[Rfam]
RNA sequence: AUGGGAAUAAAUCUCUUUCUAGUAAGUGUCGCAACUCUACUAUACAGGAUUUAUUCCUUUUU
Numbered sequence: 001a002u003g004g005g006a007a008u009a010a011a012u013c014u015c016u017u018u019c020u021a022g023u024a025a026g027u028g029u030c031g032c033a034a035c036u037c038u039a040c041u042a043u044a045c046a047g048g049a050u051u052u053a054u055u056c057c058u059u060u061u062u
Stems, first nucleotide, its partner, number of pairs: 003058011015047002020042005025036003
The family of this 62-nucleotide RNA sequence from Streptococcus pyogenes is "S. pyogenes antisense RNA 392987". NCBI's taxonomy places the organism under Bacteria, Streptococcaceae, Streptococcus, Streptococcus pyogenes, Streptococcus pyogenes serotype M1. Rfam 15.1 lists 89 matches to the family in 24 species. For this family Rfam cites "RNA sequencing uncovers antisense RNAs and novel small RNAs in Streptococcus pyogenes" (Le Rhun et al., RNA Biol, 2016). The base pairs follow the family's consensus structure, which was predicted with RNAalifold.